RNA sequence: UCAUUAGUGAGGUCUAUCCUUACCUGUUGUUCUCUAAUAGAGAAUUUCAGAAAAUGAUGAAUGGAGCUUUGAUGAGAUAUGAUUAUAUCUCUUUCUUUGUUGGGUGCAAUAACCCAACGGGAUCCUAUCUGAC
Numbered sequence: 001u002c003a004u005u006a007g008u009g010a011g012g013u014c015u016a017u018c019c020u021u022a023c024c025u026g027u028u029g030u031u032c033u034c035u036a037a038u039a040g041a042g043a044a045u046u047u048c049a050g051a052a053a054a055u056g057a058u059g060a061a062u063g064g065a066g067c068u069u070u071g072a073u074g075a076g077a078u079a080u081g082a083u084u085a086u087a088u089c090u091c092u093u094u095c096u097u098u099g100u101u102g103g104g105u106g107c108a109a110u111a112a113c114c115c116a117a118c119g120g121g122a123u124c125c126u127a128u129c130u131g132a133c
Stems, first nucleotide, its partner, number of pairs: 024050003029045005074091002077088004096121008
Dot-bracket structure: .......................(((..(((((.......)))))..))).......................((.((((....)))).))....((((((((..........))))))))............